[Rfam]
RNA sequence: CAGGCAUGCUGGAGCCUCGCCAGCGGCGCCUGGGCAUGAAAGCCCGACACCCGACGGGGCAGAA
Numbered sequence: 001c002a003g004g005c006a007u008g009c010u011g012g013a014g015c016c017u018c019g020c021c022a023g024c025g026g027c028g029c030c031u032g033g034g035c036a037u038g039a040a041a042g043c044c045c046g047a048c049a050c051c052c053g054a055c056g057g058g059g060c061a062g063a064a
Stems, first nucleotide, its partner, number of pairs: 014060006025051002031046004
ybhL leader: a 64-nucleotide RNA sequence from Pseudaminobacter soli. Rfam classes the family as a cis-regulatory leader. The match comes from Rfam's covariance-model search (55 bits). Pairs were carried over by alignment from the consensus structure. From the family's description: This family is a putative regulatory RNA structure that is found upstream of an uncharacterized membrane protein in alpha-proteobacteria. Gene Ontology term of the family: regulation of gene expression.